[Rfam]
RNA sequence: CCUAUAGUGCCGCCAGCGGUCCCCUAUCUGGGGCCCCAAGCUCCAGCUGCGGCAAUGGGUUUCGCGAUUCCGUGAUGCCUGCUUCAGCUGGUGCCCAUGGCGGCGAAAGCCGGCAUGGGGCCCACCGGUGGAGGCGAUGCGGCUGCUCAGCGGCCCCAGCGACCCGCCGACAGGGGUGGACCUCCACCUCGAUCCCGUCCCUCGAGGAACGUCUCGAUGA
Numbered sequence: 001c002c003u004a005u006a007g008u009g010c011c012g013c014c015a016g017c018g019g020u021c022c023c024c025u026a027u028c029u030g031g032g033g034c035c036c037c038a039a040g041c042u043c044c045a046g047c048u049g050c051g052g053c054a055a056u057g058g059g060u061u062u063c064g065c066g067a068u069u070c071c072g073u074g075a076u077g078c079c080u081g082c083u084u085c086a087g088c089u090g091g092u093g094c095c096c097a098u099g100g101c102g103g104c105g106a107a108a109g110c111c112g113g114c115a116u117g118g119g120g121c122c123c124a125c126c127g128g129u130g131g132a133g134g135c136g137a138u139g140c141g142g143c144u145g146c147u148c149a150g151c152g153g154c155c156c157c158a159g160c161g162a163c164c165c166g167c168c169g170a171c172a173g174g175g176g177u178g179g180a181c182c183u184c185c186a187c188c189u190c191g192a193u194c195c196c197g198u199c200c201c202u203c204g205a206g207g208a209a210c211g212u213c214u215c216g217a218u219g220a
Stems, first nucleotide, its partner, number of pairs: 018181001020179001021176005027170001030125001031123006040094002043091007052082003058079003096117004101112004126169006187207006
RNA: psaA RNA
Organism: Synechococcus sp. GFB01